[Rfam]
Description:
Shown here is a 113-nucleotide RNA sequence from Darwinula stevensoni, a member of the family "Vault RNA". A reference for the family is Stadler et al. (2009), "Evolution of Vault RNAs", Mol Biol Evol. Pairs were carried over by alignment from the consensus structure, which is taken from published work.

RNA sequence: GGACCGGCCUAGCCGACUGGGUACUUCGUGAUUGACGAGAGUCUCUUCGUAUACUUCAGCAUCGGCUGGGGCUAGCGACACCCCCUGUCCCACCGGCGCAGUCCGAUCCUUUU
Dot-bracket structure: .((.(((....((((..(((.....((((.............................................))))...........))).)))).....))).)).....